[Rfam]
RNA: Lysine riboswitch aptamer
RNA sequence: AGGUGAGGUAGAGGCGCGGUGUUUAAGAGUAAGAUGAUCGGAGAAACUGGGGUUUUGCUGAUGAUCAUCCGAAAGGAAAUAUUGCCGAAGCACCAUAUCCCCCACGGUUAUGGGAGCUGGGACUGUAUUCAAAAAGAUGCAGGACUGUCAUGGAUUUAUUUAUGGUCCAUGAUGAACUAUCGAUUUG
Dot-bracket structure: ......(((((....(((((((((........((((((((.....................)))))))).......)))))))))...(((.(((((.(.......).)))))..)))((..(((((((......)))))))..)).(((((((...........)))))))....)))))......
Numbered sequence: 001a002g003g004u005g006a007g008g009u010a011g012a013g014g015c016g017c018g019g020u021g022u023u024u025a026a027g028a029g030u031a032a033g034a035u036g037a038u039c040g041g042a043g044a045a046a047c048u049g050g051g052g053u054u055u056u057g058c059u060g061a062u063g064a065u066c067a068u069c070c071g072a073a074a075g076g077a078a079a080u081a082u083u084g085c086c087g088a089a090g091c092a093c094c095a096u097a098u099c100c101c102c103c104a105c106g107g108u109u110a111u112g113g114g115a116g117c118u119g120g121g122a123c124u125g126u127a128u129u130c131a132a133a134a135a136g137a138u139g140c141a142g143g144a145c146u147g148u149c150a151u152g153g154a155u156u157u158a159u160u161u162a163u164g165g166u167c168c169a170u171g172a173u174g175a176a177c178u179a180u181c182g183a184u185u186u187g
Stems, first nucleotide, its partner, number of pairs: 007181005016085009033069008089118003093113005099107001119146002123142007148172007